The family of this 185-nucleotide sequence from Melghirimyces algeriensis is "Lysine riboswitch aptamer". Taxonomically the source falls in Melghirimyces (Bacteria, Bacillati, Bacilli, Thermoactinomycetaceae). It scores 98 bits against the family's covariance model. Its family is annotated with lysine biosynthetic process in the Gene Ontology.
[Rfam]
RNA sequence: GUGUGAACUAGAGGAGCAGAUCAUCAUCAGUACCUGUCGUGAGGUGCGGUACCUACGAUCGGCUGGGAAAGGGAUAUCUGCCGAAGUUUUCGUCCAUACCGCAACGGGCGAAAGCUGGGACCGAUUCGAACAGGGUCGGGACUGUCACGUGAAGCUGAAGCGGAUCGUGGAGCACUAUGUCACAG
Numbered sequence: 001g002u003g004u005g006a007a008c009u010a011g012a013g014g015a016g017c018a019g020a021u022c023a024u025c026a027u028c029a030g031u032a033c034c035u036g037u038c039g040u041g042a043g044g045u046g047c048g049g050u051a052c053c054u055a056c057g058a059u060c061g062g063c064u065g066g067g068a069a070a071g072g073g074a075u076a077u078c079u080g081c082c083g084a085a086g087u088u089u090u091c092g093u094c095c096a097u098a099c100c101g102c103a104a105c106g107g108g109c110g111a112a113a114g115c116u117g118g119g120a121c122c123g124a125u126u127c128g129a130a131c132a133g134g135g136u137c138g139g140g141a142c143u144g145u146c147a148c149g150u151g152a153a154g155c156u157g158a159a160g161c162g163g164a165u166c167g168u169g170g171a172g173c174a175c176u177a178u179g180u181c182a183c184a185g
Stems, first nucleotide, its partner, number of pairs: 006180001009177003016081006023075003033066002036063004085116011117143002121139007145170005